Shown here is a 131-nucleotide RNA sequence from Spodoptera exigua, a member of the family "U4atac minor spliceosomal RNA". U4atac is an essential component of the minor U12-type spliceosome complex which is required for removal of the rarer class of eukaryotic introns (AT-AC, U12-type). The match comes from Rfam's covariance-model search (85 bits).
RNA sequence: ACUUUCCUUGUCUCGGGGAGCAUAGUGCGCAGUGAUCGUAAAGUGAGAGCACUUAUGCUGACACCCACAAGUUAAUUCUUGUAUACCCGCGCCCGGCUGCCGUAAGGGAGUCGAGCGCAAUUUUUGGAAAU
Number, nucleotide and partner (000 for none) at each position: 001a000002c000003u000004u000005u019006c018007c017008u016009u015010g000011u000012c000013u000014c000015g009016g008017g007018g006019a005020g058021c057022a056023u055024a053025g052026u051027g050028c049029g000030c047031a000032g000033u000034g000035a000036u000037c043038g000039u000040a000041a000042a000043g037044u000045g000046a000047g030048a000049g028050c027051a026052c025053u024054u000055a023056u022057g021058c020059u000060g000061a000062c000063a000064c000065c000066c000067a000068c000069a000070a000071g000072u000073u000074a000075a000076u000077u000078c000079u000080u000081g000082u000083a000084u000085a000086c000087c000088c000089g118090c117091g116092c115093c000094c113095g000096g111097c110098u109099g000100c107101c106102g000103u000104a000105a000106g101107g100108g000109a098110g097111u096112c000113g094114a000115g092116c091117g090118c089119a000120a000121u000122u000123u000124u000125u000126g000127g000128a000129a000130a000131u000
On this family, see Marz et al., J Mol Evol 2008: "Evolution of spliceosomal snRNA genes in metazoan animals". NCBI's taxonomy places the organism under Eukaryota, Pancrustacea, Allotriocarida, Dicondylia, Spodoptera.